[Rfam]
RNA sequence: AAGCCACAAUCAACAUUCAUUCUGUCGGUGGGUUAUGAUGUUGGCGGAGAACCUCACUGAUCAGUGAAUGCAACUGUGGCUG
Numbered sequence: 001a002a003g004c005c006a007c008a009a010u011c012a013a014c015a016u017u018c019a020u021u022c023u024g025u026c027g028g029u030g031g032g033u034u035a036u037g038a039u040g041u042u043g044g045c046g047g048a049g050a051a052c053c054u055c056a057c058u059g060a061u062c063a064g065u066g067a068a069u070g071c072a073a074c075u076g077u078g079g080c081u082g
Stems, first nucleotide, its partner, number of pairs: 002081007014070008024061007032052003
This 82-nucleotide RNA sequence from Pogona vitticeps belongs to the Rfam family "mir-181 microRNA precursor family".